[Rfam]
RNA sequence: GCUUCAUCCCCGGGGAGCCGCGCUUGGAAUAGGCGGUUGAGAGCGGAAUAGGCCGCGACCCGUCGAACCUGAUCCCGGUAAUACGGGCGGAGGGAGGGAGCGGUGUCCGGCC
Number, nucleotide and partner (000 for none) at each position: 001g000002c000003u000004u000005c000006a000007u099008c098009c097010c096011c062012g061013g060014g059015g000016a000017g037018c036019c035020g034021c033022g000023c000024u000025u000026g000027g000028a000029a000030u000031a000032g000033g021034c020035g019036g018037u017038u000039g000040a000041g000042a000043g000044c055045g054046g053047a000048a000049u000050a000051g000052g000053c046054c045055g044056c000057g000058a000059c014060c013061c012062g011063u000064c000065g000066a000067a000068c093069c092070u091071g000072a000073u000074c087075c086076c085077g084078g000079u000080a000081a000082u000083a000084c077085g076086g075087g074088c000089g000090g000091a070092g069093g068094g000095a000096g010097g009098g008099a007100g000101c000102g000103g000104u000105g000106u000107c000108c000109g000110g000111c000112c000

This 112-nucleotide sequence from Novosphingopyxis sp. YJ-S2-01 belongs to the Rfam family "TPP riboswitch aptamer (THI element)". It scores 66 bits against the family's covariance model. The organism belongs to Novosphingopyxis, within Bacteria.